[Rfam]
RNA: Pistol ribozyme
RNA sequence: ACUCGUUAGGGCGAGUAUAAAUAGCCAUUAGGCCCUAAGCGUCAAUGAUAAGCUCAUUGGGUUGGA
Numbered sequence: 001a002c003u004c005g006u007u008a009g010g011g012c013g014a015g016u017a018u019a020a021a022u023a024g025c026c027a028u029u030a031g032g033c034c035c036u037a038a039g040c041g042u043c044a045a046u047g048a049u050a051a052g053c054u055c056a057u058u059g060g061g062u063u064g065g066a
Base pairs, nucleotide, nucleotide: 001016002015003014004013006038007037008036009035010034011033025065026064027063032040042060043059044058045057046056047055048054